[Rfam]
Rfam assigns this 123-nucleotide sequence from Solanum lycopersicum to the family "MIR1919 microRNA precursor family". Gene Ontology terms of the family: RISC complex and miRNA-mediated post-transcriptional gene silencing. Rfam 15.1 lists 17 matches to the family in 5 species.

RNA sequence: AUCUUCCGGUAGUCCUGUCGCAGAUGACUCUCGAUCUUGUCAUUAAGCCCCUUUCUCUAAGUCUAAUUAAUUUGAAUUCAAUGUGGUAGGACGAGAGUCAUCUGUGACAGGAUUAUGGAAGAU
Numbered sequence: 001a002u003c004u005u006c007c008g009g010u011a012g013u014c015c016u017g018u019c020g021c022a023g024a025u026g027a028c029u030c031u032c033g034a035u036c037u038u039g040u041c042a043u044u045a046a047g048c049c050c051c052u053u054u055c056u057c058u059a060a061g062u063c064u065a066a067u068u069a070a071u072u073u074g075a076a077u078u079c080a081a082u083g084u085g086g087u088a089g090g091a092c093g094a095g096a097g098u099c100a101u102c103u104g105u106g107a108c109a110g111g112a113u114u115a116u117g118g119a120a121g122a123u
Base pairs, nucleotide, nucleotide: 002122003121004120005119006118007117008116012113013112014111015110016109017108018107019106020105021104022103023102024101025100026099027098028097029096030095031094032093033092035090036089

The base pairs follow the family's consensus structure, which was predicted with RNAalifold.